[Rfam]
RNA sequence: CCGUGCUAAGCGGGGAGGUAGCGGUGCCCUGUACUCGCAAUCCGCUAUAGCGAGGCCGAACUCCCUCUCGAGGUAUUUUGAAUUUAAGGUCUGCCCCAAGGGCGUGGUGUUGACGUCUUGGUCCUGCGCAACAGGGACCCACGAACCCUGUCAGGUCCGGAAGGAAGCAGCAGUAAGUGGUCAUCCUUGUGUGCCGCGGGGCAACCUGGGCCGAGCCACAAACUUGGGUCACGCUUAGGUUCAAUCUAUCAACAGAGGGUGCACGG
Numbered sequence: 001c002c003g004u005g006c007u008a009a010g011c012g013g014g015g016a017g018g019u020a021g022c023g024g025u026g027c028c029c030u031g032u033a034c035u036c037g038c039a040a041u042c043c044g045c046u047a048u049a050g051c052g053a054g055g056c057c058g059a060a061c062u063c064c065c066u067c068u069c070g071a072g073g074u075a076u077u078u079u080g081a082a083u084u085u086a087a088g089g090u091c092u093g094c095c096c097c098a099a100g101g102g103c104g105u106g107g108u109g110u111u112g113a114c115g116u117c118u119u120g121g122u123c124c125u126g127c128g129c130a131a132c133a134g135g136g137a138c139c140c141a142c143g144a145a146c147c148c149u150g151u152c153a154g155g156u157c158c159g160g161a162a163g164g165a166a167g168c169a170g171c172a173g174u175a176a177g178u179g180g181u182c183a184u185c186c187u188u189g190u191g192u193g194c195c196g197c198g199g200g201g202c203a204a205c206c207u208g209g210g211c212c213g214a215g216c217c218a219c220a221a222a223c224u225u226g227g228g229u230c231a232c233g234c235u236u237a238g239g240u241u242c243a244a245u246c247u248a249u250c251a252a253c254a255g256a257g258g259g260u261g262c263a264c265g266g
Base pairs, nucleotide, nucleotide: 001266002265003264004263005262006261010056011055012030013029014028015027017025019023034054035053036052037051038050063259064258065257066256067255068254072250073249074248075247079243080242081241082240083239084238085237086236087235088234092231093230095228096227097226098225099224100223104219106217107216108215115211116210117209118208120206121205122204123200124199125198126197127196128195129191130190132189133188134187135186136185139180140179141178142177148173149172150171151170156165157164158163